[Rfam]
RNA sequence: CCCUUCUUUCUAAAGCGCCAUGCUAAAGUCAGCAGCUGCAGGCCGACAGGUCCGCACUGGUGUUCAUUCUAGUACUGGUUUAUCACAAGAAGGAAGAGCAAAAGCACACUGUCGCAAAUGAGGCGAGGACGGACCUCUUUCUUAAUGUCCGGUGUCCGCGCUCUCUAGAUGCUGUGCUAUAACG
Numbered sequence: 001c002c003c004u005u006c007u008u009u010c011u012a013a014a015g016c017g018c019c020a021u022g023c024u025a026a027a028g029u030c031a032g033c034a035g036c037u038g039c040a041g042g043c044c045g046a047c048a049g050g051u052c053c054g055c056a057c058u059g060g061u062g063u064u065c066a067u068u069c070u071a072g073u074a075c076u077g078g079u080u081u082a083u084c085a086c087a088a089g090a091a092g093g094a095a096g097a098g099c100a101a102a103a104g105c106a107c108a109c110u111g112u113c114g115c116a117a118a119u120g121a122g123g124c125g126a127g128g129a130c131g132g133a134c135c136u137c138u139u140u141c142u143u144a145a146u147g148u149c150c151g152g153u154g155u156c157c158g159c160g161c162u163c164u165c166u167a168g169a170u171g172c173u174g175u176g177c178u179a180u181a182a183c184g
Stems, first nucleotide, its partner, number of pairs: 018078002021074005028067002031064001034058002103178006110171002126155001128153001130151004

Small nucleolar RNA SNORA81: a 184-nucleotide sequence from Danionella cerebrum. Rfam links the family to the GO terms nucleolus and RNA processing. For this family Rfam cites "A novel experimental approach for systematic identification of box H/ACA snoRNAs from eukaryotes" (Gu et al., Nucleic Acids Res, 2005). NCBI's taxonomy places the organism under Eukaryota, Teleostomi, Euteleostomi, Otomorpha, Danionella. Pairs were carried over by alignment from the consensus structure, which was predicted with WAR.